[Rfam]
RNA sequence: AUGCUUGCGCAGUGGCAGUAUCGUAGCCUAUGAGGUUUAUCCGAGGCACGAUCAUUGCUGGUUGAAAACUUUACCCAAUACCCCGCCAGAACGACUUGAAAAACAGUCGGUCUUGACAUUUUUUGUCGGUCUCUUUUGAGA
Numbered sequence: 001a002u003g004c005u006u007g008c009g010c011a012g013u014g015g016c017a018g019u020a021u022c023g024u025a026g027c028c029u030a031u032g033a034g035g036u037u038u039a040u041c042c043g044a045g046g047c048a049c050g051a052u053c054a055u056u057g058c059u060g061g062u063u064g065a066a067a068a069c070u071u072u073a074c075c076c077a078a079u080a081c082c083c084c085g086c087c088a089g090a091a092c093g094a095c096u097u098g099a100a101a102a103a104c105a106g107u108c109g110g111u112c113u114u115g116a117c118a119u120u121u122u123u124u125g126u127c128g129g130u131c132u133c134u135u136u137u138g139a140g141a
Stems, first nucleotide, its partner, number of pairs: 020052005026047003034042002085117001087115001088113003092109004096103002130141004